The family of this 53-nucleotide RNA sequence from Musa balbisiana is "Plastid-psbl-rps4 3UTR RNA". Rfam classes the family as a cis-regulatory element. A reference for the family is Richter et al. (2023), "Retrograde signaling in plants: A critical review focusing on the GUN pathway and beyond", Plant Commun. The match comes from Rfam's covariance-model search (68 bits). Rfam describes the family as follows. Plastid psbl-rps4-psbC is a non-coding RNA (ncRNA) present in plastids. It is compose of two short stem-loops in tandem in the terminal 3 prime untranslate region (3UTR) mostly in psbl and rps4 seed plants genes. The source organism's lineage runs through Eukaryota, Embryophyta, Mesangiospermae, commelinids and Musa.

[Rfam]
RNA sequence: UGAAGAGAGAGGGAUUUGAACCCUCGGUAUGAAUAACUUAUACAACAGAUUAG
Numbered sequence: 001u002g003a004a005g006a007g008a009g010a011g012g013g014a015u016u017u018g019a020a021c022c023c024u025c026g027g028u029a030u031g032a033a034u035a036a037c038u039u040a041u042a043c044a045a046c047a048g049a050u051u052a053g
Stems, first nucleotide, its partner, number of pairs: 009025005027043006